[Rfam]
The record is a 159-nucleotide RNA sequence from Trichonephila clavata, which matches "Wolbachia sRNA 46" in Rfam. The family has 3 seed sequences and 237 matches in Rfam 15.1.
RNA sequence: UUUUUGUUAAACACAACAAAGAUGCCAUCCCAGUGCUUGACACUGGGAUCCAGGAAAGUUUGCUUGUAAACUAGCAUAGAAAAACAUUUUCAAUGAGAUUGCAGAAAGGCUGGAUCCCAGUGUCAAGCACUGGGAUGACAAAGGAGGACAGUGUCAAGC
Dot-bracket structure: ..........((((........((.((((((((((((((((((((((((((((........................................................)))))))))))))))))))))))))))).))..........)))).....